RNA: Plant signal recognition particle RNA
RNA sequence: GCUGAGCUCGGUAGCGUCUAGCGUGAGGUUGUCACCAAAGCGGGAGCAUAAAGGUGGCGUGGAUGCAUGGUUGCGGCCUUUGGGCCUAGGCCUGUGGUGCGCCUUAGUGGUGGCCUGCCCGAUCCAAGCUGUUGGUAGUGGUUGGGAUGGGGUUUCUGACGAAAGUUUUGGGCCUCUCUAAUCCUUGAAGCGGCAGGAAUGGCGUGAGCCUGGCUUCACAGAGCAGCGAUCACUGACCUCUUCCAACGGUGGGUGGAUAACAGGCCGCUCCAGGGUCUUUUUUUUUCUUUUUUUUCCCGUCCGUAACUCCUUUGUU
Numbered sequence: 001g002c003u004g005a006g007c008u009c010g011g012u013a014g015c016g017u018c019u020a021g022c023g024u025g026a027g028g029u030u031g032u033c034a035c036c037a038a039a040g041c042g043g044g045a046g047c048a049u050a051a052a053g054g055u056g057g058c059g060u061g062g063a064u065g066c067a068u069g070g071u072u073g074c075g076g077c078c079u080u081u082g083g084g085c086c087u088a089g090g091c092c093u094g095u096g097g098u099g100c101g102c103c104u105u106a107g108u109g110g111u112g113g114c115c116u117g118c119c120c121g122a123u124c125c126a127a128g129c130u131g132u133u134g135g136u137a138g139u140g141g142u143u144g145g146g147a148u149g150g151g152g153u154u155u156c157u158g159a160c161g162a163a164a165g166u167u168u169u170g171g172g173c174c175u176c177u178c179u180a181a182u183c184c185u186u187g188a189a190g191c192g193g194c195a196g197g198a199a200u201g202g203c204g205u206g207a208g209c210c211u212g213g214c215u216u217c218a219c220a221g222a223g224c225a226g227c228g229a230u231c232a233c234u235g236a237c238c239u240c241u242u243c244c245a246a247c248g249g250u251g252g253g254u255g256g257a258u259a260a261c262a263g264g265c266c267g268c269u270c271c272a273g274g275g276u277c278u279u280u281u282u283u284u285u286u287c288u289u290u291u292u293u294u295u296c297c298c299g300u301c302c303g304u305a306a307c308u309c310c311u312u313u314g315u316u
Stems, first nucleotide, its partner, number of pairs: 001047003004030002007027004035044002050316002053313002056310002059307002063304003067300003070296001073293001075291001082289003088278005098272002101270001110268008119256002122254005130248006137241002140183006149176007158167003184190002192237001194235003201230001203228003210221003
Dot-bracket structure: (((((.((((.............)))).))....((......)))))..((.((.((.((..(((.((((..(.(......(((...(((((.....((.(........((((((((.((.(((((...((((((.((.((((((...(((((((..(((....)))..))))))).))))))((...)).(.(((....(.(((....(((......)))....))).)..))).)..)).)))))).)))))))....)))))))).))).)))))........))).).)..).))).))).)).)).)).))